[Rfam]
Record summary:
Shown here is a 62-nucleotide sequence from Tupaia belangeri, a member of the family "mir-103/107 microRNA precursor family". The literature on the family includes a 2002 paper in Genes Dev by Mourelatos et al., "miRNPs: a novel class of ribonucleoproteins containing numerous microRNAs". The organism belongs to Tupaia belangeri, within Eukaryota. Rfam's curators put it in the seed alignment. This family consists of the mammalian microRNA (miRNA) precursors mir-103 and mir107.

RNA sequence: UCGGCUUCUUUACAGUGCUGCCUUGUUGCAUAUGGAUCAAGCAGCAUUGUACAGGGCUAUGA
Numbered sequence: 001u002c003g004g005c006u007u008c009u010u011u012a013c014a015g016u017g018c019u020g021c022c023u024u025g026u027u028g029c030a031u032a033u034g035g036a037u038c039a040a041g042c043a044g045c046a047u048u049g050u051a052c053a054g055g056g057c058u059a060u061g062a
Stems, first nucleotide, its partner, number of pairs: 006056004011051010022041004